A member of the RNA family "Plastid-rpl16 group II-D1 intron" from Kingdonia uniflora, 42 nucleotides long. A reference for the family is Richter et al. (2023), "Retrograde signaling in plants: A critical review focusing on the GUN pathway and beyond", Plant Commun. About the family: Plastid-rpl16 is a non-coding RNA (ncRNA) recognised in plastids. It was recognised in and intronic region of a ribosome rpl16 gene. Its family is annotated with Group II intron splicing in the Gene Ontology. The organism belongs to Kingdonia, within Eukaryota.
[Rfam]
RNA sequence: CUAGAGUCAAUAAAGACUGAGAAAAUUGACUCAGAAACAAAU
Numbered sequence: 001c002u003a004g005a006g007u008c009a010a011u012a013a014a015g016a017c018u019g020a021g022a023a024a025a026u027u028g029a030c031u032c033a034g035a036a037a038c039a040a041a042u
Base pairs, nucleotide, nucleotide: 002034004032005031006030007029008028009027010026011025